[Rfam]
RNA sequence: GUCUCACUAAUGGCAACGACUACUGCCGGGUACCCUCGGCCCAUGGUCUACCAGCACGAUGUGAUUAUUCGUGCCGGCUGUUUUGAGUCCCGUAUUCAUCCCGUGCCGCAUUGGCCGGGUUGAGGGCCAGACACUGCGCUACCUCGCAGGGCGACCGAUACACGGGUGUUCGUGAUCGUUUUCCUCCGUGGAUAGCCCUUCCGGGUAAUAUCCGGUGGGCU
Dot-bracket structure: .................(((((..((((((....))))))...)))))..((..((((((......).)))))..)).........((.((........((((.(((.....)))))))....))))...................(((((..(.((((.((((......))))))))...).)))..))..........(((((.....)))))......
Shown here is a 221-nucleotide RNA sequence from Kineobactrum sediminis, a member of the family "ilvB-OMG RNA". The family's RNA type in Rfam is cis-regulatory element.